The record is an 84-nucleotide sequence from Apis mellifera, which matches "mir-263 microRNA precursor family" in Rfam. The sequence is in the family's curated seed alignment. A reference for the family is Li et al. (2009), "Direct sequencing and expression analysis of a large number of miRNAs in Aedes aegypti and a multi-species survey of novel mosquito miRNAs", BMC Genomics. The family has 52 seed sequences and 368 matches in Rfam 15.1. Gene Ontology terms of the family: RISC complex and miRNA-mediated post-transcriptional gene silencing.
[Rfam]
RNA sequence: UGGACUCUGUAAAUGGCACUGGAAGAAUUCACGGGGGAUUUAAGAAACGGGCCCGUGGAGCUCCCGUGUCAUACACAGCGUCCG
Numbered sequence: 001u002g003g004a005c006u007c008u009g010u011a012a013a014u015g016g017c018a019c020u021g022g023a024a025g026a027a028u029u030c031a032c033g034g035g036g037g038a039u040u041u042a043a044g045a046a047a048c049g050g051g052c053c054c055g056u057g058g059a060g061c062u063c064c065c066g067u068g069u070c071a072u073a074c075a076c077a078g079c080g081u082c083c084g
Stems, first nucleotide, its partner, number of pairs: 003082003007078004013072006021064002029058006